[Rfam]
RNA sequence: ACACCACCAUCAUCACAAAGCAUAACCUUUCAGGUUCGUGCUGGAAGGUUAUUGUUUCCUUCCAACGGCGCAGAUGAAAAAAUUCUCGACCCUCGGAAGGCAACUUUCGGGGGUUUUU
Numbered sequence: 001a002c003a004c005c006a007c008c009a010u011c012a013u014c015a016c017a018a019a020g021c022a023u024a025a026c027c028u029u030u031c032a033g034g035u036u037c038g039u040g041c042u043g044g045a046a047g048g049u050u051a052u053u054g055u056u057u058c059c060u061u062c063c064a065a066c067g068g069c070g071c072a073g074a075u076g077a078a079a080a081a082a083u084u085c086u087c088g089a090c091c092c093u094c095g096g097a098a099g100g101c102a103a104c105u106u107u108c109g110g111g112g113g114u115u116u117u118u
Stems, first nucleotide, its partner, number of pairs: 008040003012035003020031001042064007088115012
Background
The family of this 118-nucleotide RNA sequence from Alteromonas sp. KUL49 is "Histidine operon leader". By type it is a cis-regulatory leader. The match comes from Rfam's covariance-model search (59 bits). From the family's description: At least 6 amino acid operons are known to be regulated by attenuation. In each a leader sequence of 150-200 bp is found upstream of the first gene in the operon. This leader sequence can assume two different secondary structures known as the terminator and the anti-terminator structure. In each case the leader also codes for very short peptide sequence that is rich in the end product amino acid of the operon.